Rfam assigns this 112-nucleotide RNA sequence from Aotus nancymaae to the family "Y RNA". NCBI's taxonomy places the organism under Eukaryota, Vertebrata, Teleostomi, Platyrrhini, Aotus. A search with the family's covariance model found it, with a score of 50 bits. On this family, see Teunissen et al., Nucleic Acids Res 2000: "Conserved features of Y RNAs: a comparison of experimentally derived secondary structures".

[Rfam]
RNA sequence: CACUGGCCUGAAGGUAGUGAGUUAUCUCACCUGAUUGUUCACAAUUAGUCACAGAUCAAACUCCUUGAUCUGCUCUUUUCCCCUUCUCACUAUGGCACUUGACUAGUCUACA
Numbered sequence: 001c002a003c004u005g006g007c008c009u010g011a012a013g014g015u016a017g018u019g020a021g022u023u024a025u026c027u028c029a030c031c032u033g034a035u036u037g038u039u040c041a042c043a044a045u046u047a048g049u050c051a052c053a054g055a056u057c058a059a060a061c062u063c064c065u066u067g068a069u070c071u072g073c074u075c076u077u078u079u080c081c082c083c084u085u086c087u088c089a090c091u092a093u094g095g096c097a098c099u100u101g102a103c104u105a106g107u108c109u110a111c112a
Stems, first nucleotide, its partner, number of pairs: 002107005008101001010100002014096002016091006044074001047071002
Rfam classes the family as a non-coding RNA gene. About the family: Y RNAs are components of the Ro ribonucleoprotein particle (Ro RNP), in association with Ro60 and La proteins.